[Rfam]
RNA: small Cajal body-specific RNA 18
Organism: Microtus ochrogaster
RNA sequence: GAGCCAGUGAGGACAUGAUCACUGUCUAGGCUGAGUUUUUGGGAACCAGGAGAUAAAGUGUGCUCUGACAAAAAAAAAAGUGUG
Numbered sequence: 001g002a003g004c005c006a007g008u009g010a011g012g013a014c015a016u017g018a019u020c021a022c023u024g025u026c027u028a029g030g031c032u033g034a035g036u037u038u039u040u041g042g043g044a045a046c047c048a049g050g051a052g053a054u055a056a057a058g059u060g061u062g063c064u065c066u067g068a069c070a071a072a073a074a075a076a077a078a079a080g081u082g083u084g
Stems, first nucleotide, its partner, number of pairs: 002083001005080001039049004